U12 minor spliceosomal RNA: a 162-nucleotide RNA sequence from Lactuca saligna. Rfam classes the family as a spliceosomal small nuclear RNA. Gene Ontology terms of the family: pre-mRNA branch point binding, mRNA branch site recognition and U12 snRNP.
RNA sequence: UUGCCUUAAACUAAUGAGUAAGGAAAACAAAGCGAGCGGUGAGAGCCGAUCGCCGCGCCACUCAUAACCAAUGAGCGCAUGAAUUUAUGGAGGGGUUAUAGGCUGGCCUUGCGUUGACGCUGCUUACUUUGCAGAACUCGCUUGAGCGGGCCUCCCGAACCC
Numbered sequence: 001u002u003g004c005c006u007u008a009a010a011c012u013a014a015u016g017a018g019u020a021a022g023g024a025a026a027a028c029a030a031a032g033c034g035a036g037c038g039g040u041g042a043g044a045g046c047c048g049a050u051c052g053c054c055g056c057g058c059c060a061c062u063c064a065u066a067a068c069c070a071a072u073g074a075g076c077g078c079a080u081g082a083a084u085u086u087a088u089g090g091a092g093g094g095g096u097u098a099u100a101g102g103c104u105g106g107c108c109u110u111g112c113g114u115u116g117a118c119g120c121u122g123c124u125u126a127c128u129u130u131g132c133a134g135a136a137c138u139c140g141c142u143u144g145a146g147c148g149g150g151c152c153u154c155c156c157g158a159a160c161c162c
Stems, first nucleotide, its partner, number of pairs: 004023005032053004037048003055078004093162005100153005106147001108144001111141003120134004